[Rfam]
RNA sequence: AACUGCUUGACGGGGUGCCGGUGAUAUCCGGCUGAGAUGGCGCAGGGCGUAUCUGCUGAUACUGCCAAAGCGCUGGUCCCGCUGAACCUGAUCCGGCUAAUGCGUUGCUCCUAUGAUGAGCGCGCGGGUACCGGCGUAGGGAUCAAGCGAUGGCCUUGG
Numbered sequence: 001a002a003c004u005g006c007u008u009g010a011c012g013g014g015g016u017g018c019c020g021g022u023g024a025u026a027u028c029c030g031g032c033u034g035a036g037a038u039g040g041c042g043c044a045g046g047g048c049g050u051a052u053c054u055g056c057u058g059a060u061a062c063u064g065c066c067a068a069a070g071c072g073c074u075g076g077u078c079c080c081g082c083u084g085a086a087c088c089u090g091a092u093c094c095g096g097c098u099a100a101u102g103c104g105u106u107g108c109u110c111c112u113a114u115g116a117u118g119a120g121c122g123c124g125c126g127g128g129u130a131c132c133g134g135c136g137u138a139g140g141g142a143u144c145a146a147g148c149g150a151u152g153g154c155c156u157u158g159g
Stems, first nucleotide, its partner, number of pairs: 006147005011081004016075001017032005039074005087140004093134004